The record is a 62-nucleotide sequence from Bacillus mesophilum, which matches "Ribosomal protein L13 leader" in Rfam. Rfam's curators write: This family is a putative r-protein leader autoregulatory structure found in B. subtilis and other low-GC Gram-positive bacteria. It is located in the 5' untranslated regions of mRNAs encoding the L13-S9 (rplM-rpsI) ribosomal protein operon. It is annotated as a cis-regulatory leader. Lineage of the source: Bacteria > Bacillati > Bacilli > Bacillaceae > Bacillus. For this family Rfam cites "Diverse mechanisms for regulating ribosomal protein synthesis in Escherichia coli" (Zengel and Lindahl, Prog Nucleic Acid Res Mol Biol, 1994).
RNA sequence: GGUAUUGUUAUUAAACCCACGAUAAGCCCCGGAACUUAUUGUGUGAUAUAUGAAACCAAAAA
Number, nucleotide and partner (000 for none) at each position: 001g000002g000003u000004a000005u000006u058007g057008u000009u055010a000011u053012u052013a000014a000015a000016c000017c000018c043019a042020c041021g040022a039023u038024a037025a036026g035027c000028c000029c000030c000031g000032g000033a000034a000035c026036u025037u024038a023039u022040u021041g020042u019043g018044u000045g000046a000047u000048a000049u000050a000051u000052g012053a011054a000055a009056c000057c007058a006059a000060a000061a000062a000